[Rfam]
RNA sequence: AUAAGGGUGCCUCUAGGGUUCCGGUAUAGGCUGCUUCGAGUCUAUGCGACUGGUCCAAGAGAGGACGGUCAGCAGUGCAAUGAUUCCUUCUGGAGAGGCAUUUUCUUCGGGGGAAAGCCACUUCAAGCUGACUACACGGCGGGAGAAAAGCCCGGGAGAA
Numbered sequence: 001a002u003a004a005g006g007g008u009g010c011c012u013c014u015a016g017g018g019u020u021c022c023g024g025u026a027u028a029g030g031c032u033g034c035u036u037c038g039a040g041u042c043u044a045u046g047c048g049a050c051u052g053g054u055c056c057a058a059g060a061g062a063g064g065a066c067g068g069u070c071a072g073c074a075g076u077g078c079a080a081u082g083a084u085u086c087c088u089u090c091u092g093g094a095g096a097g098g099c100a101u102u103u104u105c106u107u108c109g110g111g112g113g114a115a116a117g118c119c120a121c122u123u124c125a126a127g128c129u130g131a132c133u134a135c136a137c138g139g140c141g142g143g144a145g146a147a148a149a150g151c152c153c154g155g156g157a158g159a160a
Stems, first nucleotide, its partner, number of pairs: 007066002010064004016056002021053002023050001024047009067133007135155001137158001141153003
This 160-nucleotide sequence from Synechococcales cyanobacterium M55_K2018_004 belongs to the Rfam family "Guanidine-I riboswitch aptamer". NCBI's taxonomy places the organism under Bacteria, Bacillati, Cyanobacteriota, Cyanophyceae, Synechococcales. This family represents a conserved RNA structure found upstream of the ykkC and yxkD genes in Bacillus subtilis and related genes in other bacteria. A search with the family's covariance model found it, with a score of 70 bits.